A member of the RNA family "Streptococcus sRNA SpF59 (ldcC RNA)" from Thomasclavelia spiroformis, 53 nucleotides long. By type it is a small RNA. Lineage of the source: Bacteria > Bacillati > Coprobacillaceae > Thomasclavelia > Thomasclavelia spiroformis. For this family Rfam cites "Control of virulence by small RNAs in Streptococcus pneumoniae" (Mann et al., PLoS Pathog, 2012).

RNA sequence: UGACCACUCAUUAAAUGAGCCAAAGCCAUACGGACAGCUGGGUCAAAUGCCGG
Numbered sequence: 001u002g003a004c005c006a007c008u009c010a011u012u013a014a015a016u017g018a019g020c021c022a023a024a025g026c027c028a029u030a031c032g033g034a035c036a037g038c039u040g041g042g043u044c045a046a047a048u049g050c051c052g053g
Stems, first nucleotide, its partner, number of pairs: 001045005007019005